[Rfam]
RNA sequence: AAAGGGGAAGCCGAAAACCUGUAAGAGUAGGCG
Numbered sequence: 001a002a003a004g005g006g007g008a009a010g011c012c013g014a015a016a017a018c019c020u021g022u023a024a025g026a027g028u029a030g031g032c033g
Stems, first nucleotide, its partner, number of pairs: 003020003010032003
Dot-bracket structure: ..(((....[[[.....))).........]]].
The record is a 33-nucleotide RNA sequence, which matches "DUF805b RNA" in Rfam. The sequence is in the family's curated seed alignment. The family is grouped with related families in Rfam's "DUF805 clan".